[Rfam]
RNA: TPP riboswitch aptamer (THI element)
RNA sequence: AUUUGUCCAACGGGGUGCCCACCAAGGCUGAGAAGCAUAAGCUAACCCGUACACCUGAUCUAGAUAAUACUAGUGGAGGAAUUGUGUAAAAAUAUUUC
Numbered sequence: 001a002u003u004u005g006u007c008c009a010a011c012g013g014g015g016u017g018c019c020c021a022c023c024a025a026g027g028c029u030g031a032g033a034a035g036c037a038u039a040a041g042c043u044a045a046c047c048c049g050u051a052c053a054c055c056u057g058a059u060c061u062a063g064a065u066a067a068u069a070c071u072a073g074u075g076g077a078g079g080a081a082u083u084g085u086g087u088a089a090a091a092a093u094a095u096u097u098c
Stems, first nucleotide, its partner, number of pairs: 006086001008084003011049004017028003035042002054079003060073004